[Rfam]
RNA sequence: AGCGAAAAUGAUGAUUUCUUUUGAAUCUGAAUUUAGGUGUGGAAUCGCAUCUCGUCGUAUUGGUCUUCAAAGUUCUCUGAUUGCU
Numbered sequence: 001a002g003c004g005a006a007a008a009u010g011a012u013g014a015u016u017u018c019u020u021u022u023g024a025a026u027c028u029g030a031a032u033u034u035a036g037g038u039g040u041g042g043a044a045u046c047g048c049a050u051c052u053c054g055u056c057g058u059a060u061u062g063g064u065c066u067u068c069a070a071a072g073u074u075c076u077c078u079g080a081u082u083g084c085u
Stems, first nucleotide, its partner, number of pairs: 001085003005082002